[Rfam]
Description:
Rfam assigns this 47-nucleotide RNA sequence from Georgenia soli to the family "L31-Actinobacteria ribosomal protein leader". It scores 38 bits against the family's covariance model. Pairs were carried over by alignment from the consensus structure, which is taken from published work. Lineage of the source: Bacteria > Bacillati > Actinomycetota > Allobogoriellaceae > Georgenia.
RNA sequence: UCGGCCUCCGGUUCACGGACGCGGUCCCUCGCGCCCGACCCGGGGCA
Numbered sequence: 001u002c003g004g005c006c007u008c009c010g011g012u013u014c015a016c017g018g019a020c021g022c023g024g025u026c027c028c029u030c031g032c033g034c035c036c037g038a039c040c041c042g043g044g045g046c047a
Stems, first nucleotide, its partner, number of pairs: 004046001006045001008043004016037003020033005